[Rfam]
RNA sequence: GGCCCGUAGUUUGCUUAGGCUGGGCCAUGGGUCGACCAAAGCCGGUCCCCCUCAACCCCGACAAAGGCGUCGC
Numbered sequence: 001g002g003c004c005c006g007u008a009g010u011u012u013g014c015u016u017a018g019g020c021u022g023g024g025c026c027a028u029g030g031g032u033c034g035a036c037c038a039a040a041g042c043c044g045g046u047c048c049c050c051c052u053c054a055a056c057c058c059c060g061a062c063a064a065a066g067g068c069g070u071c072g073c
Stems, first nucleotide, its partner, number of pairs: 030050002034047004
Shown here is a 73-nucleotide RNA from Pseudomonas mangrovi, a member of the family "narK RNA". It is annotated as a cis-regulatory element.